A member of the RNA family "Small nucleolar RNA SNORD17" from Oceanites oceanicus, 248 nucleotides long. The family has 19 seed sequences and 1,015 matches in Rfam 15.1. It is annotated as a C/D-box small nucleolar RNA. Rfam describes the family as follows. The snoRNA HBI-43 belongs to the C/D family of snoRNAs, guiding 2'O-ribose methylation at position U3797 of the 28S rRNA. Pseudouridylation in position U3797 is predicted to be guided by the H/ACA snoRNA ACA48. Gene Ontology terms of the family: RNA processing and nucleolus. NCBI's taxonomy places the organism under Eukaryota, Bilateria, Neoaves, Procellariiformes, Oceanites.
[Rfam]
RNA sequence: GUGAGAUGAUGGCGAAGUUUAUCCAUUCUCUGAGUGCAGUGGUGCUGCCCUCCUGCAGCACUCUUGAUUCCUGUUCUAGAGUCUGGGUGCUGUGUGGCCUCCAGAGACCCUCCAGUCUCCCAGUGUCCUGCUGGGGGCUGCUGUGGUUUGUGGCUGACUGCCUGCAGGAGUGAAGUGGUGCUGGCAGGGUUGGAGCCCCUCUUUGGGGGGCUCUGUCCCCACUGAGAUGAGGGAUGAUGUCUGAUCAC
Dot-bracket structure: .........(((....((.(..((.(((.((..((...((.(((((((.((((((((...(.(((((((.((.....)))))).))).)....((((.(.......((....(((((.(((((((...)))))))))))).....))........).)))).)))))))..)..)))))).).)).(((.((((.((((.......)))).)))).))).))..))..)))))...).))....))).
Numbered sequence: 001g002u003g004a005g006a007u008g009a010u011g012g013c014g015a016a017g018u019u020u021a022u023c024c025a026u027u028c029u030c031u032g033a034g035u036g037c038a039g040u041g042g043u044g045c046u047g048c049c050c051u052c053c054u055g056c057a058g059c060a061c062u063c064u065u066g067a068u069u070c071c072u073g074u075u076c077u078a079g080a081g082u083c084u085g086g087g088u089g090c091u092g093u094g095u096g097g098c099c100u101c102c103a104g105a106g107a108c109c110c111u112c113c114a115g116u117c118u119c120c121c122a123g124u125g126u127c128c129u130g131c132u133g134g135g136g137g138c139u140g141c142u143g144u145g146g147u148u149u150g151u152g153g154c155u156g157a158c159u160g161c162c163u164g165c166a167g168g169a170g171u172g173a174a175g176u177g178g179u180g181c182u183g184g185c186a187g188g189g190u191u192g193g194a195g196c197c198c199c200u201c202u203u204u205g206g207g208g209g210g211c212u213c214u215g216u217c218c219c220c221a222c223u224g225a226g227a228u229g230a231g232g233g234a235u236g237a238u239g240u241c242u243g244a245u246c247a248c
Stems, first nucleotide, its partner, number of pairs: 010247003017240002020237001023233002026231003030226002034222002039185002042182001043180006050172001051169007061089001063087003066083004071079002094161004099156001107147002113140005119135007187219003191215004196210004